[Rfam]
RNA sequence: CUGGUAAAAUAGCACGCUUAUCGAAAGGUAAGGUCGCAAAGUCUUGAAUCUACGGUAUAAUAUAUGCUAUGAUUGUCAGACUGCCGGA
Numbered sequence: 001c002u003g004g005u006a007a008a009a010u011a012g013c014a015c016g017c018u019u020a021u022c023g024a025a026a027g028g029u030a031a032g033g034u035c036g037c038a039a040a041g042u043c044u045u046g047a048a049u050c051u052a053c054g055g056u057a058u059a060a061u062a063u064a065u066g067c068u069a070u071g072a073u074u075g076u077c078a079g080a081c082u083g084c085c086g087g088a
Stems, first nucleotide, its partner, number of pairs: 012037002017032006040082004045078003048073003055067004
c-di-GMP-I riboswitch aptamer: an 88-nucleotide sequence from Selenihalanaerobacter shriftii. Lineage of the source: Bacteria > Bacillota > Halanaerobiales > Halobacteroidaceae > Selenihalanaerobacter. GEMM was predicted in a large-scale screen for bacterial structured RNA regulatory elements. Genes associated with GEMM are involved in a diverse array of functions, including chemotaxis regulation, signal transduction, secretion and chitin. A search with the family's covariance model found it, with a score of 66 bits. Pairs were carried over by alignment from the consensus structure, which is taken from published work.